[Rfam]
RNA: azaaromatic riboswitch aptamer (yjdF RNA)
Organism: Lachnotalea sp. AF33-28
RNA sequence: UAACGCAAGGAAAAAAACACAGUCCCGGCCGGUAGUCCGGGCGCAGUCAUGAUCUGUCAGUAACCUGCCUCCUCGGUUGUCCGUUCUUUGCAGUAAAAAG
Numbered sequence: 001u002a003a004c005g006c007a008a009g010g011a012a013a014a015a016a017a018c019a020c021a022g023u024c025c026c027g028g029c030c031g032g033u034a035g036u037c038c039g040g041g042c043g044c045a046g047u048c049a050u051g052a053u054c055u056g057u058c059a060g061u062a063a064c065c066u067g068c069c070u071c072c073u074c075g076g077u078u079g080u081c082c083g084u085u086c087u088u089u090g091c092a093g094u095a096a097a098a099a100g
Base pairs, nucleotide, nucleotide: 005091006090007089008088009087010086011085022042023041025040026039027038028037043057044056045055046054067077068076069075